[Rfam]
RNA sequence: CCCUUCUUUCAAAAGCACCAUGCUAAAAUCAUCAGCUCAAGACCUUCGGGCCUAGAGCUGGUGUUCAUGCUAGUAUUGGUUCUUCACAAAGAAGGAAGAUCAAAAGCACAUGGUCGGAAAUGAGCCUAGCACGGACCUCUUUCUUAAUGUCCAGUGUUCUAGGUCUCAAGAUGCUGUGCCACACAU
Numbered sequence: 001c002c003c004u005u006c007u008u009u010c011a012a013a014a015g016c017a018c019c020a021u022g023c024u025a026a027a028a029u030c031a032u033c034a035g036c037u038c039a040a041g042a043c044c045u046u047c048g049g050g051c052c053u054a055g056a057g058c059u060g061g062u063g064u065u066c067a068u069g070c071u072a073g074u075a076u077u078g079g080u081u082c083u084u085c086a087c088a089a090a091g092a093a094g095g096a097a098g099a100u101c102a103a104a105a106g107c108a109c110a111u112g113g114u115c116g117g118a119a120a121u122g123a124g125c126c127u128a129g130c131a132c133g134g135a136c137c138u139c140u141u142u143c144u145u146a147a148u149g150u151c152c153a154g155u156g157u158u159c160u161a162g163g164u165c166u167c168a169a170g171a172u173g174c175u176g177u178g179c180c181a182c183a184c185a186u
Stems, first nucleotide, its partner, number of pairs: 018079002021075005028068002031065001034059002037056002040053002043050002106179005113172001128157001133152003
Shown here is a 186-nucleotide RNA from Triplophysa rosa, a member of the family "Small nucleolar RNA SNORA81". The literature on the family includes a 2005 paper in Nucleic Acids Res by Gu et al., "A novel experimental approach for systematic identification of box H/ACA snoRNAs from eukaryotes". By type it is an H/ACA-box small nucleolar RNA.